[Rfam]
Notes: This 121-nucleotide RNA sequence from Rhizobium sp. Leaf306 belongs to the Rfam family "Alphaproteobacterial ar14". Taxonomically the source falls in Rhizobium (Bacteria, Alphaproteobacteria, Hyphomicrobiales, Rhizobiaceae). Rfam describes the family as follows. Smr14C2 was renamed NfeR1 (Nodule Formation Efficiency RNA) highly expressed in salt stress and during the symbiotic interaction on legume roots. Gene Ontology term of the family: biological process involved in symbiotic interaction. By type it is a small RNA.
RNA sequence: GUGUUCCAGGCGACCACUCCUCCCAAUGGGCGUCUGGCAGAACAGCGGCACUCCUCCUCCCAGCCGUUGUUCGAUCUUUUCGAAAAGCCUGCCGCACCUCCUCCCGCGGCAGGCUUUUUCG
Numbered sequence: 001g002u003g004u005u006c007c008a009g010g011c012g013a014c015c016a017c018u019c020c021u022c023c024c025a026a027u028g029g030g031c032g033u034c035u036g037g038c039a040g041a042a043c044a045g046c047g048g049c050a051c052u053c054c055u056c057c058u059c060c061c062a063g064c065c066g067u068u069g070u071u072c073g074a075u076c077u078u079u080u081c082g083a084a085a086a087g088c089c090u091g092c093c094g095c096a097c098c099u100c101c102u103c104c105c106g107c108g109g110c111a112g113g114c115u116u117u118u119u120c121g
Stems, first nucleotide, its partner, number of pairs: 007036006014029003040072010085116011